Rfam assigns this 362-nucleotide part of an RNA from a Bathymodiolus septemdierum thioautotrophic gill symbiont to the family "Bacterial large subunit ribosomal RNA". NCBI's taxonomy places the organism under Bacteria, Pseudomonadati, Pseudomonadota, Gammaproteobacteria, Bathymodiolus septemdierum thioautotrophic gill symbiont. It scores 2876 bits against the family's covariance model. Rfam 15.1 lists 51,934 matches to the family in 10,816 species.
[Rfam]
RNA sequence: UGAGAGAACUCGGGUGAAGGAACUAGGCAAAAUGACACCGUAACUUCGGGAGAAGGUGUGCUCUUGCCGGUGAUUUUACUUGCUAAAUGAGCUGGUAAGAGUUGAAGAUACCAGGUGGCUCCGACUGUUUAUUAAAAACACAGCACUCUGCAAACACGUAAGUGGACGUAUAGGGUGUGACGCCUGCCCGGUGCUUGAAGGUUAAUUGAUGAGGUUAGGAUUCGUCCGAAGCUUUUGAUCGAAGCCCAAGUAAACGGCGGCCGUAACUAUAACGGUCCUAAGGUAGCGAAAUUCCUUGUCGGGUAAGUUCCGACCUGCACGAAUGGCGUAACGAGGGCCACACUGUCUCCACCCGAGACUCA
Numbered sequence: 001u002g003a004g005a006g007a008a009c010u011c012g013g014g015u016g017a018a019g020g021a022a023c024u025a026g027g028c029a030a031a032a033u034g035a036c037a038c039c040g041u042a043a044c045u046u047c048g049g050g051a052g053a054a055g056g057u058g059u060g061c062u063c064u065u066g067c068c069g070g071u072g073a074u075u076u077u078a079c080u081u082g083c084u085a086a087a088u089g090a091g092c093u094g095g096u097a098a099g100a101g102u103u104g105a106a107g108a109u110a111c112c113a114g115g116u117g118g119c120u121c122c123g124a125c126u127g128u129u130u131a132u133u134a135a136a137a138a139c140a141c142a143g144c145a146c147u148c149u150g151c152a153a154a155c156a157c158g159u160a161a162g163u164g165g166a167c168g169u170a171u172a173g174g175g176u177g178u179g180a181c182g183c184c185u186g187c188c189c190g191g192u193g194c195u196u197g198a199a200g201g202u203u204a205a206u207u208g209a210u211g212a213g214g215u216u217a218g219g220a221u222u223c224g225u226c227c228g229a230a231g232c233u234u235u236u237g238a239u240c241g242a243a244g245c246c247c248a249a250g251u252a253a254a255c256g257g258c259g260g261c262c263g264u265a266a267c268u269a270u271a272a273c274g275g276u277c278c279u280a281a282g283g284u285a286g287c288g289a290a291a292u293u294c295c296u297u298g299u300c301g302g303g304u305a306a307g308u309u310c311c312g313a314c315c316u317g318c319a320c321g322a323a324u325g326g327c328g329u330a331a332c333g334a335g336g337g338c339c340a341c342a343c344u345g346u347c348u349c350c351a352c353c354c355g356a357g358a359c360u361c362a
Base pairs, nucleotide, nucleotide: 001362002361003360004359009357010356011355012354013353014352015351016350018348019347020346035059036058037057038056039055044049060102061101062100063099064098065097066096067095068094069093070092071091103107115341116340117339118338119337120336121335122333123332126140127139128138143178144177145176146175147174148173149172150171151168155164156163157162181328182327183326184325186258187257188256191255192254193251194250195249196248197247200246201245202244211235212234213233214232215231218227219226259277260276261275262274263273264272278282288315298314299313300312301311302310303309